[Rfam]
RNA sequence: GGCUGGUCCGAUGGUAGUAGGUUAUCAGAACUUAUUAACAUUAGUGUCACUAAAGUUGGCAUAUAACCCCCACUGCCAAAUUUGACUGGCUUUAA
Dot-bracket structure: ((((((((.((...((((.((...........(.(.((.................)).).).......)).)))...)...))))))))))....
Y RNA: a 95-nucleotide sequence from Aotus nancymaae.
NCBI's taxonomy places the organism under Eukaryota, Bilateria, Boreoeutheria, Primates, Aotus.
The match comes from Rfam's covariance-model search (57 bits).
Rfam classes the family as a non-coding RNA gene.